[Rfam]
RNA sequence: AGAGAGAAAAUAUCGCAUACUUAUAUAGGUUCAUAAUCGGUUGAACGUCUCUACCAGCCGCCGGAAACGGCUGACUAUAAGUAUGCCGGGCGUAAGA
Numbered sequence: 001a002g003a004g005a006g007a008a009a010a011u012a013u014c015g016c017a018u019a020c021u022u023a024u025a026u027a028g029g030u031u032c033a034u035a036a037u038c039g040g041u042u043g044a045a046c047g048u049c050u051c052u053a054c055c056a057g058c059c060g061c062c063g064g065a066a067a068c069g070g071c072u073g074a075c076u077a078u079a080a081g082u083a084u085g086c087c088g089g090g091c092g093u094a095a096g097a
Base pairs, nucleotide, nucleotide: 018083019082020081021080022079023078024077025076029046030045031044032043033042055073056072057071058070059069060068